[Rfam]
RNA: ACEA small nucleolar RNA U3
Organism: Perkinsus olseni
RNA sequence: UCGACUGUACUCGAACAGGAUCACUUAUGUAGUGAUAUCCUUUCGUUCACAAGAGUACUCUUGACAAAACCCUAAACCGUGAUGAGGAGUUGUAUACCCCACCCUAAUGGAGGUUUAGUCAGUACAGUCAUGUACUCGACUUCGAUGAUCCAUCCUUUACGAGGACAGGGUGUGGGUAUUGCUGAGCGGUU
Numbered sequence: 001u002c003g004a005c006u007g008u009a010c011u012c013g014a015a016c017a018g019g020a021u022c023a024c025u026u027a028u029g030u031a032g033u034g035a036u037a038u039c040c041u042u043u044c045g046u047u048c049a050c051a052a053g054a055g056u057a058c059u060c061u062u063g064a065c066a067a068a069a070c071c072c073u074a075a076a077c078c079g080u081g082a083u084g085a086g087g088a089g090u091u092g093u094a095u096a097c098c099c100c101a102c103c104c105u106a107a108u109g110g111a112g113g114u115u116u117a118g119u120c121a122g123u124a125c126a127g128u129c130a131u132g133u134a135c136u137c138g139a140c141u142u143c144g145a146u147g148a149u150c151c152a153u154c155c156u157u158u159a160c161g162a163g164g165a166c167a168g169g170g171u172g173u174g175g176g177u178a179u180u181g182c183u184g185a186g187c188g189g190u191u
Stems, first nucleotide, its partner, number of pairs: 003040001008034004017028001019026002043067001045065003049061001051059001076190005095178005100172006108152004118140003123134001153165004